[Rfam]
RNA sequence: GUGAUGAAUUCGAGAGAGAGCACGGGAUAAGUGCCGCCGAAGGGGCUUGCAAAAAACUCUCAGGCAAAAGGAUCGAAUUCGGACG
Numbered sequence: 001g002u003g004a005u006g007a008a009u010u011c012g013a014g015a016g017a018g019a020g021c022a023c024g025g026g027a028u029a030a031g032u033g034c035c036g037c038c039g040a041a042g043g044g045g046c047u048u049g050c051a052a053a054a055a056a057c058u059c060u061c062a063g064g065c066a067a068a069a070g071g072a073u074c075g076a077a078u079u080c081g082g083a084c085g
Base pairs, nucleotide, nucleotide: 006080007079008078009077010076011075012074013073020034021033022032023031036065037064038063039061040060043059044058045057

Shown here is an 85-nucleotide RNA from Blautia liquoris, a member of the family "Glycine riboswitch aptamer". Lineage of the source: Bacteria > Bacillati > Bacillota > Lachnospirales > Blautia. It scores 64 bits against the family's covariance model. Its Rfam clan is "Glycine riboswitch clan". Its family is annotated with glycine biosynthetic process in the Gene Ontology.